The family of this 330-nucleotide RNA sequence from Loa loa is "Nuclear RNase P". Rfam's curators write: Ribonuclease P (RNase P) is a ubiquitous endoribonuclease, found in archaea, bacteria and eukarya as well as chloroplasts and mitochondria. The family's RNA type in Rfam is ribozyme.
[Rfam]
RNA sequence: GUGGUGAUAAGGUGACAAAAGGAGUAACCCACGGGCAUUCGAUUGCUCACUGGUUAUGCUCCUGGGAAGGUCUGAGAUUAGGUCCCGGCCAAGUUUGGUUGGUCGUAUCCUCUAGCAGGGGAACGAUGUAAACCGUCGUAGUGCCGUACCAGAAACCCCCUCGGUACCAAUCACCCUGAAGUACAAGACGGUUUACCUCAGUGUUUGGAGGGAAGCCUGAUACGAUUGUGGUGAUGGUAUUGAGUUUGAACCACGGUGCUGGUGCUAGCUGCGCUGAGUGCGAUUGUCUCCGCAUAUGUGUGAACUCAAUUCAGACUACUCUCUCGCCAC
Number, nucleotide and partner (000 for none) at each position: 001g330002u329003g328004g327005u000006g000007a324008u000009a322010a000011g000012g000013u000014g289015a000016c000017a000018a285019a000020a063021g062022g061023a060024g059025u000026a000027a000028c000029c000030c000031a000032c000033g048034g047035g046036c045037a044038u000039u000040c000041g000042a000043u000044u037045g036046c035047u034048c033049a000050c000051u000052g000053g000054u000055u000056a000057u000058g000059c024060u023061c022062c021063u020064g000065g000066g000067a000068a000069g000070g000071u000072c314073u313074g312075a311076g310077a000078u000079u000080a000081g000082g000083u000084c000085c000086c000087g266088g265089c264090c000091a000092a000093g000094u000095u000096u000097g000098g000099u000100u000101g000102g000103u000104c000105g000106u000107a000108u122109c121110c120111u119112c118113u000114a000115g000116c000117a000118g112119g111120g110121g109122a108123a139124c138125g137126a136127u135128g134129u000130a000131a000132a000133c000134c128135g127136u126137c125138g124139u123140a000141g259142u258143g257144c256145c255146g254147u253148a000149c000150c000151a000152g000153a000154a000155a000156c000157c000158c000159c000160c244161u243162c242163g241164g240165u239166a238167c237168c236169a235170a000171u000172c000173a000174c000175c000176c000177u000178g000179a000180a000181g000182u000183a000184c000185a000186a000187g000188a000189c000190g000191g000192u000193u000194u000195a000196c000197c000198u000199c000200a000201g000202u000203g000204u000205u000206u000207g000208g000209a000210g000211g000212g000213a000214a000215g000216c000217c000218u000219g000220a000221u000222a000223c000224g000225a000226u000227u000228g000229u000230g000231g000232u000233g000234a000235u169236g168237g167238u166239a165240u164241u163242g162243a161244g160245u000246u000247u000248g000249a000250a000251c000252c000253a147254c146255g145256g144257u143258g142259c141260u000261g000262g000263u000264g089265c088266u087267a000268g000269c000270u000271g000272c000273g000274c000275u000276g000277a000278g000279u000280g000281c000282g000283a000284u000285u018286g000287u000288c000289u014290c000291c000292g000293c000294a000295u000296a000297u000298g000299u000300g000301u000302g000303a000304a000305c000306u000307c000308a000309a000310u076311u075312c074313a073314g072315a000316c000317u000318a000319c000320u000321c000322u009323c000324u007325c000326g000327c004328c003329a002330c001